This 114-nucleotide RNA from Acipenser ruthenus belongs to the Rfam family "Potassium channel RNA editing signal". The family has 85 seed sequences and 14,095 matches in Rfam 15.1. By type it is a cis-regulatory element. The family's consensus secondary structure is taken from published work. A search with the family's covariance model found it, with a score of 104 bits.
RNA sequence: GUGGGUUAUGGUGACAUGUAUCCUGUUACAAUUGGUGGCAAAAUUGUAGGUUCCUUGUGUGCCAUUGCAGGUGUGCUGACAAUUGCGCUGCCGGUGCCAGUGAUCGUCUCAAAU
Numbered sequence: 001g002u003g004g005g006u007u008a009u010g011g012u013g014a015c016a017u018g019u020a021u022c023c024u025g026u027u028a029c030a031a032u033u034g035g036u037g038g039c040a041a042a043a044u045u046g047u048a049g050g051u052u053c054c055u056u057g058u059g060u061g062c063c064a065u066u067g068c069a070g071g072u073g074u075g076c077u078g079a080c081a082a083u084u085g086c087g088c089u090g091c092c093g094g095u096g097c098c099a100g101u102g103a104u105c106g107u108c109u110c111a112a113a114u
Stems, first nucleotide, its partner, number of pairs: 001114002005110001008107004014101002018097004037077004049063003